[Rfam]
RNA sequence: AAGAUCCUGCUGAUUCUACCCUUGGGUUUGAGCGUACAUUGUAAAGCUACUUUUAAACUCUAAUGGGAGAGACAGCAGGAUUC
Numbered sequence: 001a002a003g004a005u006c007c008u009g010c011u012g013a014u015u016c017u018a019c020c021c022u023u024g025g026g027u028u029u030g031a032g033c034g035u036a037c038a039u040u041g042u043a044a045a046g047c048u049a050c051u052u053u054u055a056a057a058c059u060c061u062a063a064u065g066g067g068a069g070a071g072a073c074a075g076c077a078g079g080a081u082u083c
Base pairs, nucleotide, nucleotide: 003082004081005080006079007078008077009076010075011074012073014071015070016069017068019066020065022063023062024061025060028057029056031054032053038048040046
mir-1305 microRNA precursor family: an 83-nucleotide RNA from Tupaia belangeri. Pairs were carried over by alignment from the consensus structure, which was predicted with RNAalifold. Lineage of the source: Eukaryota > Opisthokonta > Sarcopterygii > Tupaiidae > Tupaia belangeri.